RNA sequence: UGCAACACUUAUCAAAGGAGUCGUUUCCCAAUCAAGAGCUACUUUACCAUAUUUCGAGUUC
Numbered sequence: 001u002g003c004a005a006c007a008c009u010u011a012u013c014a015a016a017g018g019a020g021u022c023g024u025u026u027c028c029c030a031a032u033c034a035a036g037a038g039c040u041a042c043u044u045u046a047c048c049a050u051a052u053u054u055c056g057a058g059u060u061c
Stems, first nucleotide, its partner, number of pairs: 017045005023039004
Shown here is a 61-nucleotide RNA sequence from Olea europaea, a member of the family "Plastid-psbN 5UTR RNA". A search with the family's covariance model found it, with a score of 58 bits. Lineage of the source: Eukaryota > Viridiplantae > Gunneridae > Olea > Olea europaea. Plastid psbN is a non-coding RNA (ncRNA) recognised in plastids. It was reported as a conserved 11 stem-loop in the prime untranslated region (5UTR) of psbN genes. It has been reported that the motif is retained in a subset of mature transcripts in barley, which can suggests a possible role in transcript alternative 5 prime processing. On this family, see Richter et al., Plant Commun 2023: "Retrograde signaling in plants: A critical review focusing on the GUN pathway and beyond".